[Rfam]
The family of this 88-nucleotide RNA sequence from Rhododendron simsii is "small nucleolar RNA snoR126". A search with the family's covariance model found it, with a score of 60 bits. The organism belongs to Rhododendron, within Eukaryota.
RNA sequence: AGGCGAUGAAGAUAGAAAUCGUUUCUCGAUGCUGAUUUUUGAUCAUUAGAUCACAUUCUGAUGACCUAUUUGUGCGUGUCUGAGCCUU
Numbered sequence: 001a002g003g004c005g006a007u008g009a010a011g012a013u014a015g016a017a018a019u020c021g022u023u024u025c026u027c028g029a030u031g032c033u034g035a036u037u038u039u040u041g042a043u044c045a046u047u048a049g050a051u052c053a054c055a056u057u058c059u060g061a062u063g064a065c066c067u068a069u070u071u072g073u074g075c076g077u078g079u080c081u082g083a084g085c086c087u088u
Stems, first nucleotide, its partner, number of pairs: 001087004